[Rfam]
RNA sequence: UACUUCAGCCGUCCGGUGGAUGGCUUGGCUCGGAAGCCGAAGAAGGUCGUGCCAAGCUGCGAUAAGCCCAGGCGAGGCGCAUGGAGCCUUGGAACCUGGGAUUGCCUAAUGGGACUUCCUGAUAUUGUGGAAACAAUAUCGAUCCCAUUUGGGAUCGGGGACUCCCUGAAAUGAAACAUCUUAGUAGGGGAAGGAAAAGAAAUCAAAUCCGAGAUGCCGUUAGUAAUGGCGAAAGAAGGCGGCAUAGCUCAAGCCGAAUCCUUUCUUGAAAAAGAAAGGAGAUGUGGUUCAGCCACACUAGAUCCCUAUCGAGUUGAAGUUGAAGUCUCCUGGAAUGGAGCGCCAAAGAGGGUGAAAGCCCCGUAAACAUAUGCUCGCGGGAUCGUGGCUGGAAAGAGUAGUGUGGGUUGGAUAUCCCGCGCGAAUAAGGGAGGAAUUGACUCCCAAAGCUAAAUACAUCCCGAGCCCGAUAGCGCACUAGUAGCGUGAGUGAAAGCUGAAAAGUACCCUCUAACGGGGGAUGAAAAGAGCCUGAAAUCGGAUGGUGAUAAACC
Numbered sequence: 001u002a003c004u005u006c007a008g009c010c011g012u013c014c015g016g017u018g019g020a021u022g023g024c025u026u027g028g029c030u031c032g033g034a035a036g037c038c039g040a041a042g043a044a045g046g047u048c049g050u051g052c053c054a055a056g057c058u059g060c061g062a063u064a065a066g067c068c069c070a071g072g073c074g075a076g077g078c079g080c081a082u083g084g085a086g087c088c089u090u091g092g093a094a095c096c097u098g099g100g101a102u103u104g105c106c107u108a109a110u111g112g113g114a115c116u117u118c119c120u121g122a123u124a125u126u127g128u129g130g131a132a133a134c135a136a137u138a139u140c141g142a143u144c145c146c147a148u149u150u151g152g153g154a155u156c157g158g159g160g161a162c163u164c165c166c167u168g169a170a171a172u173g174a175a176a177c178a179u180c181u182u183a184g185u186a187g188g189g190g191a192a193g194g195a196a197a198a199g200a201a202a203u204c205a206a207a208u209c210c211g212a213g214a215u216g217c218c219g220u221u222a223g224u225a226a227u228g229g230c231g232a233a234a235g236a237a238g239g240c241g242g243c244a245u246a247g248c249u250c251a252a253g254c255c256g257a258a259u260c261c262u263u264u265c266u267u268g269a270a271a272a273a274g275a276a277a278g279g280a281g282a283u284g285u286g287g288u289u290c291a292g293c294c295a296c297a298c299u300a301g302a303u304c305c306c307u308a309u310c311g312a313g314u315u316g317a318a319g320u321u322g323a324a325g326u327c328u329c330c331u332g333g334a335a336u337g338g339a340g341c342g343c344c345a346a347a348g349a350g351g352g353u354g355a356a357a358g359c360c361c362c363g364u365a366a367a368c369a370u371a372u373g374c375u376c377g378c379g380g381g382a383u384c385g386u387g388g389c390u391g392g393a394a395a396g397a398g399u400a401g402u403g404u405g406g407g408u409u410g411g412a413u414a415u416c417c418c419g420c421g422c423g424a425a426u427a428a429g430g431g432a433g434g435a436a437u438u439g440a441c442u443c444c445c446a447a448a449g450c451u452a453a454a455u456a457c458a459u460c461c462c463g464a465g466c467c468c469g470a471u472a473g474c475g476c477a478c479u480a481g482u483a484g485c486g487u488g489a490g491u492g493a494a495a496g497c498u499g500a501a502a503a504g505u506a507c508c509c510u511c512u513a514a515c516g517g518g519g520g521a522u523g524a525a526a527a528g529a530g531c532c533u534g535a536a537a538u539c540g541g542a543u544g545g546u547g548a549u550a551a552a553c554c
Stems, first nucleotide, its partner, number of pairs: 008546009022532001023497002027468002029465005036457001044107004048061003067100006076088003111120003142155005162193001163191005173180002203212002216243005227233001246451004254287003264275004293388004303382004319368003325341001327340004344348001350362003401422007429445005484491002